[Rfam]
RNA: Group II catalytic intron D1-D4-3
Organism: Metabacillus lacus
RNA sequence: UCCGUGGUGACGCGGAAUCUGAAGGAAGCGAGCGGCAAACCUCCGGUCUGAGGAACACGAACUCCAUAUAAGGCUAGGUACCAUUGGAUGAGUUUGCAUAACAAAACAAAGUCCUUACUGCCGAAGGUGGUACACAGUAAAUGGAGCAGAUAGAUGGAGGGAAAGACUGUACU
Numbered sequence: 001u002c003c004g005u006g007g008u009g010a011c012g013c014g015g016a017a018u019c020u021g022a023a024g025g026a027a028g029c030g031a032g033c034g035g036c037a038a039a040c041c042u043c044c045g046g047u048c049u050g051a052g053g054a055a056c057a058c059g060a061a062c063u064c065c066a067u068a069u070a071a072g073g074c075u076a077g078g079u080a081c082c083a084u085u086g087g088a089u090g091a092g093u094u095u096g097c098a099u100a101a102c103a104a105a106a107c108a109a110a111g112u113c114c115u116u117a118c119u120g121c122c123g124a125a126g127g128u129g130g131u132a133c134a135c136a137g138u139a140a141a142u143g144g145a146g147c148a149g150a151u152a153g154a155u156g157g158a159g160g161g162a163a164a165g166a167c168u169g170u171a172c173u
Stems, first nucleotide, its partner, number of pairs: 001016006028173001031170001036165001040160006046151005062146006073138003078133006086114004092107004